[Rfam]
RNA sequence: GUAAUGAGAUACCGAAUCGGCGACAUCAUCGGAGGAUGAUGUCGGGGGCGACCUGGAAACAGGUACAGCGAAAGCUGCGGUCAGUGUAGAACACUGAUUUGACACCUCUCAAAACCUCAACACUUUGCACUUCCCUGGUGCUCAGGUACUCAUUA
Numbered sequence: 001g002u003a004a005u006g007a008g009a010u011a012c013c014g015a016a017u018c019g020g021c022g023a024c025a026u027c028a029u030c031g032g033a034g035g036a037u038g039a040u041g042u043c044g045g046g047g048g049c050g051a052c053c054u055g056g057a058a059a060c061a062g063g064u065a066c067a068g069c070g071a072a073a074g075c076u077g078c079g080g081u082c083a084g085u086g087u088a089g090a091a092c093a094c095u096g097a098u099u100u101g102a103c104a105c106c107u108c109u110c111a112a113a114a115c116c117u118c119a120a121c122a123c124u125u126u127g128c129a130c131u132u133c134c135c136u137g138g139u140g141c142u143c144a145g146g147u148a149c150u151c152a153u154u155a
Base pairs, nucleotide, nucleotide: 002155003154004153005152008150010148011147012146013145021044022043023042024041025040026039027038028037029036045108046107047106048105052063053062054061055060078101079100080099083095084094085093086092087091
Shown here is a 155-nucleotide sequence from Pantoea ananatis, a member of the family "EFASI RNA". NCBI's taxonomy places the organism under Bacteria, Pseudomonadati, Enterobacterales, Erwiniaceae, Pantoea ananatis. Rfam's curators put it in the seed alignment. It is annotated as a small RNA.